[Rfam]
RNA sequence: UCAACGUUGACACUUCAGUGAAGCUUUACUGCGGAACUGUUGAGUCUGUGUGGCGUGCAGGAUCCGAAUGUUCCCUCUGGGGGACUUGAGGUCUGGUCCUCUUCCACAAUGUUGUACAGAAAUGGGUCCUCCUGACGGCUCUUUGUCAGAUGUUGGGCCUACCCCUGCAUAUUCCAUAAACUUCUCGUAGUUGCUAUGCAACCAUGACUGAGGAGAUAAGCCAUGCAGUGGACAUGU
Number, nucleotide and partner (000 for none) at each position: 001u000002c114003a113004a112005c111006g110007u109008u000009g046010a045011c000012a000013c044014u043015u000016c039017a038018g037019u000020g032021a000022a030023g029024c000025u000026u000027u000028a000029c023030u022031g000032c020033g000034g000035a000036a000037c018038u017039g016040u000041u000042g000043a014044g013045u010046c009047u000048g000049u000050g107051u106052g105053g104054c000055g000056u000057g000058c000059a100060g099061g098062a097063u000064c091065c090066g087067a086068a000069u000070g000071u000072u000073c000074c000075c000076u000077c000078u000079g000080g000081g000082g000083g000084a000085c000086u067087u066088g000089a000090g065091g064092u000093c000094u000095g000096g000097u062098c061099c060100u059101c000102u000103u000104c053105c052106a051107c050108a000109a007110u006111g005112u004113u003114g002115u000116a000117c000118a000119g000120a000121a000122a000123u000124g000125g000126g000127u000128c000129c000130u000131c000132c000133u000134g000135a000136c000137g000138g000139c000140u000141c000142u000143u000144u000145g000146u000147c000148a000149g000150a000151u000152g000153u000154u000155g000156g000157g000158c000159c000160u000161a000162c000163c000164c000165c228166u227167g226168c225169a224170u223171a000172u000173u000174c000175c000176a000177u000178a000179a000180a000181c215182u214183u213184c212185u211186c210187g000188u000189a000190g202191u201192u000193g199194c198195u000196a000197u000198g194199c193200a000201a191202c190203c000204a000205u000206g000207a000208c000209u000210g186211a185212g184213g183214a182215g181216a000217u000218a000219a000220g000221c000222c000223a170224u169225g168226c167227a166228g165229u000230g000231g000232a000233c000234a000235u000236g000237u000

This 237-nucleotide RNA sequence from Candidula unifasciata belongs to the Rfam family "Small nucleolar RNA SNORA73 family".
Gene Ontology terms of the family: nucleolus and RNA processing.
The family is grouped with related families in Rfam's "snR30-U17 clan".
About the family: U17 (SNORA73A and SNORA73B) also known as E1 belongs to the H/ACA class of small nucleolar RNAs (snoRNAs). Vertebrate U17 is intron-encoded and ranges in length from 200-230 nucleotides, longer than most snoRNAs. It is one of the most abundant snoRNAs in human cells and is essential for the cleavage of pre-rRNA within the 5' external transcribed spacer (ETS). This cleavage leads to the formation of 18S rRNA. Regions of the U17 RNA are complementary to rRNA and act as guides for RNA/RNA interactions, although these regions do not seem to be well conserved between organisms.
NCBI's taxonomy places the organism under Eukaryota, Spiralia, Lophotrochozoa, Helicina, Candidula.
Pairs were carried over by alignment from the consensus structure, which is taken from published work.
On this family, see Cervelli et al., J Mol Evol 2002: "Comparative Structure Analysis of Vertebrate U17 Small Nucleolar RNA (snoRNA)".
A search with the family's covariance model found it, with a score of 80 bits.